[Rfam]
The family of this 172-nucleotide RNA from Allobacillus sp. SKP2-8 is "glmS glucosamine-6-phosphate activated ribozyme aptamer". For this family Rfam cites "Control of gene expression by a natural metabolite-responsive ribozyme" (Winkler et al., Nature, 2004). Lineage of the source: Bacteria > Bacillota > Bacilli > Caryophanales > Allobacillus. It is annotated as a riboswitch.

RNA sequence: GUAACAUGUAAAGCGCCUGGACUAUUUUCUGUUCGGUAAAGAAGAUAGUUGACGAGGAGGAGGUUUAUCGAUGUUUUCGGCGGAUGCCUCCCGGUUGCCCAUCUCAACUGCUAUGUUUUGUGGUUAAAGCAUGAAGGUGACUUCAUGUACAAAGCCACAGACAAGAUGGACA
Numbered sequence: 001g002u003a004a005c006a007u008g009u010a011a012a013g014c015g016c017c018u019g020g021a022c023u024a025u026u027u028u029c030u031g032u033u034c035g036g037u038a039a040a041g042a043a044g045a046u047a048g049u050u051g052a053c054g055a056g057g058a059g060g061a062g063g064u065u066u067a068u069c070g071a072u073g074u075u076u077u078c079g080g081c082g083g084a085u086g087c088c089u090c091c092c093g094g095u096u097g098c099c100c101a102u103c104u105c106a107a108c109u110g111c112u113a114u115g116u117u118u119u120g121u122g123g124u125u126a127a128a129g130c131a132u133g134a135a136g137g138u139g140a141c142u143u144c145a146u147g148u149a150c151a152a153a154g155c156c157a158c159a160g161a162c163a164a165g166a167u168g169g170a171c172a
Base pairs, nucleotide, nucleotide: 020050021049022048023047024046025045026044027043029041059091060090061089062088063087068080069079070078071077092110093109094108095107096106097105117161118160119159120158121157122156130147131146132145133144134143135142136141